[Rfam]
Annotation
The family of this 105-nucleotide RNA sequence from Salipaludibacillus keqinensis is "TPP riboswitch aptamer (THI element)". It scores 67 bits against the family's covariance model. Taxonomically the source falls in Salipaludibacillus (Bacteria, Bacillati, Caryophanales, Bacillaceae). The base pairs follow the family's consensus structure, which is taken from published work. The literature on the family includes a 2002 paper in J Biol Chem by Rodionov et al., "Comparative genomics of thiamin biosynthesis in procaryotes. New genes and regulatory mechanisms". About the family: Vitamin B(1) in its active form thiamin pyrophosphate (TPP) is an essential coenzyme that is synthesised by coupling of pyrimidine and thiazole moieties in bacteria.
RNA sequence: AAGAACCACGAGGGGAGUCCUUAGAAGGACUGAGAGGAAGCUGUUCGCUUCGACCCUUUGAACCUGUAAGUUCGCACUUGCGUAGGGAUGUGGAGCCGAUAAUAC
Numbered sequence: 001a002a003g004a005a006c007c008a009c010g011a012g013g014g015g016a017g018u019c020c021u022u023a024g025a026a027g028g029a030c031u032g033a034g035a036g037g038a039a040g041c042u043g044u045u046c047g048c049u050u051c052g053a054c055c056c057u058u059u060g061a062a063c064c065u066g067u068a069a070g071u072u073c074g075c076a077c078u079u080g081c082g083u084a085g086g087g088a089u090g091u092g093g094a095g096c097c098g099a100u101a102a103u104a105c
Stems, first nucleotide, its partner, number of pairs: 006093005011057004017030005037051005063086004067080004